[Rfam]
RNA sequence: AGCUGUGCUGUGUCCUCACUGGGAUCUACAGUAUCCUCCACUCACCCUCUGCAGCAGGGUGGAACAACACAGCU
Numbered sequence: 001a002g003c004u005g006u007g008c009u010g011u012g013u014c015c016u017c018a019c020u021g022g023g024a025u026c027u028a029c030a031g032u033a034u035c036c037u038c039c040a041c042u043c044a045c046c047c048u049c050u051g052c053a054g055c056a057g058g059g060u061g062g063a064a065c066a067a068c069a070c071a072g073c074u
Stems, first nucleotide, its partner, number of pairs: 001074007010065002013062002021037005044060005
This 74-nucleotide sequence belongs to the Rfam family "bZIP non canonical Hac1/Xbp1 intron".
Rfam's curators write: bZIP intron RNA is a non-canonical intron that was first reported in HAC1 gene in yeast and XBP1 gene in Metazoa.
The family's consensus secondary structure was predicted with RNAfold.
Rfam 15.1 lists 1,325 matches to the family in 1,320 species.
It is annotated as a small RNA.